[Rfam]
RNA sequence: GGCAAGGGGACCAUCCGCGAUCGCCCCGUGAGGCUUCGGCCGAAGCAUCGCGUCCGAUACUCCCGAAUACAGGGGUGGACGCAUCAUG
Numbered sequence: 001g002g003c004a005a006g007g008g009g010a011c012c013a014u015c016c017g018c019g020a021u022c023g024c025c026c027c028g029u030g031a032g033g034c035u036u037c038g039g040c041c042g043a044a045g046c047a048u049c050g051c052g053u054c055c056g057a058u059a060c061u062c063c064c065g066a067a068u069a070c071a072g073g074g075g076u077g078g079a080c081g082c083a084u085c086a087u088g
Stems, first nucleotide, its partner, number of pairs: 006027004050082006

Shown here is an 88-nucleotide RNA from Allostella humosa, a member of the family "chrB-a RNA". It scores 69 bits against the family's covariance model. The base pairs follow the family's consensus structure, which is taken from published work. Lineage of the source: Bacteria > Pseudomonadota > Rhodospirillales > Allostellaceae > Allostella.